RNA sequence: GGGCAUCCUGCCUGAAGGUUUGUCUCAACCUUUUUCUCUUUAGGUGAGCAAAGUUUCAGGUGUGUUGCUCU
Numbered sequence: 001g002g003g004c005a006u007c008c009u010g011c012c013u014g015a016a017g018g019u020u021u022g023u024c025u026c027a028a029c030c031u032u033u034u035u036c037u038c039u040u041u042a043g044g045u046g047a048g049c050a051a052a053g054u055u056u057c058a059g060g061u062g063u064g065u066u067g068c069u070c071u
Stems, first nucleotide, its partner, number of pairs: 002069004007064001009062007017054001019052003024048004029044003
RNA: mir-87 microRNA precursor family
Organism: Rhipicephalus sanguineus